[Rfam]
RNA sequence: GGGAGCGGUCACCCCUCCCCGAUGGCCGAUCGGCGCAAGCGCCCAUCAUCAAGCGCCUGAUAUGGCCUGACCCGCCCGGCUGUCCCCCCGGGCGGGUC
Numbered sequence: 001g002g003g004a005g006c007g008g009u010c011a012c013c014c015c016u017c018c019c020c021g022a023u024g025g026c027c028g029a030u031c032g033g034c035g036c037a038a039g040c041g042c043c044c045a046u047c048a049u050c051a052a053g054c055g056c057c058u059g060a061u062a063u064g065g066c067c068u069g070a071c072c073c074g075c076c077c078g079g080c081u082g083u084c085c086c087c088c089c090g091g092g093c094g095g096g097u098c
Stems, first nucleotide, its partner, number of pairs: 001019005024067005029061002032057005069098011
Rfam assigns this 98-nucleotide sequence from Tardiphaga sp. vice352 to the family "Rhizobiales-2 RNA". It scores 72 bits against the family's covariance model. The family's RNA type in Rfam is small RNA. Taxonomically the source falls in Tardiphaga (Bacteria, Pseudomonadati, Alphaproteobacteria, Nitrobacteraceae).